[Rfam]
RNA: TPP riboswitch aptamer (THI element)
Organism: Rhizobium etli
RNA sequence: CCGAAAUAACAGGGGAGCUCCGUGUCGCCGGGGCUGAGAUGCGAGGCGCAGGCCUCCGAACCCUUCUAAGCUGAUCUGGGUAAUGCCAGCGGAGCGAGGUCCAAAUGUAUUUCG
Numbered sequence: 001c002c003g004a005a006a007u008a009a010c011a012g013g014g015g016a017g018c019u020c021c022g023u024g025u026c027g028c029c030g031g032g033g034c035u036g037a038g039a040u041g042c043g044a045g046g047c048g049c050a051g052g053c054c055u056c057c058g059a060a061c062c063c064u065u066c067u068a069a070g071c072u073g074a075u076c077u078g079g080g081u082a083a084u085g086c087c088a089g090c091g092g093a094g095c096g097a098g099g100u101c102c103a104a105a106u107g108u109a110u111u112u113c114g
Stems, first nucleotide, its partner, number of pairs: 008100001010098001011064004017034005041057001043056004070095003076089004